RNA sequence: AAGGCUUCGAAUUUGAGGAGAUUUUGCUUGCACUUUUAUCACUGUGUUCAGUAACGUUUUAUUGAAGCCAAUAAAUGUGUUCCCCUCGCUAUCCAAUGCUGCAAUUUGUGUAGCAUUAGGACGUCGGGGAACAAAAUUU
Numbered sequence: 001a002a003g004g005c006u007u008c009g010a011a012u013u014u015g016a017g018g019a020g021a022u023u024u025u026g027c028u029u030g031c032a033c034u035u036u037u038a039u040c041a042c043u044g045u046g047u048u049c050a051g052u053a054a055c056g057u058u059u060u061a062u063u064g065a066a067g068c069c070a071a072u073a074a075a076u077g078u079g080u081u082c083c084c085c086u087c088g089c090u091a092u093c094c095a096a097u098g099c100u101g102c103a104a105u106u107u108g109u110g111u112a113g114c115a116u117u118a119g120g121a122c123g124u125c126g127g128g129g130a131a132c133a134a135a136a137u138u139u
Stems, first nucleotide, its partner, number of pairs: 001072001003069003008064001010063003015059002018055001024054004029050002032047002079132007087123002092121003096117001101111003
Description
Small nucleolar RNA snoR136: a 139-nucleotide RNA sequence from Lupinus albus. The family's consensus secondary structure was predicted with mfold. Lineage of the source: Eukaryota > Streptophyta > Embryophyta > Magnoliopsida > Lupinus. The literature on the family includes a 2009 paper in Nucleic Acids Res by Chen and Wu, "Mining small RNA sequencing data: a new approach to identify small nucleolar RNAs in Arabidopsis".